The record is a 73-nucleotide sequence from Pseudothioglobus singularis, which matches "tRNA" in Rfam. Rfam's curators write: Transfer RNA (tRNA) molecules are approximately 80 nucleotides in length. Pairs were carried over by alignment from the consensus structure, which is taken from published work. The family's RNA type in Rfam is transfer RNA.
RNA sequence: GCCGACAUAGCACAGUUGGUAGUGCAACUGAUUUGUAAUCAGUAGGUCCGCGGUUCGAGUCCGUGUGUCGGCA
Numbered sequence: 001g002c003c004g005a006c007a008u009a010g011c012a013c014a015g016u017u018g019g020u021a022g023u024g025c026a027a028c029u030g031a032u033u034u035g036u037a038a039u040c041a042g043u044a045g046g047u048c049c050g051c052g053g054u055u056c057g058a059g060u061c062c063g064u065g066u067g068u069c070g071g072c073a
Base pairs, nucleotide, nucleotide: 001072002071003070004069005068006067007066010025011024012023013022027043028042029041030040031039049065050064051063052062053061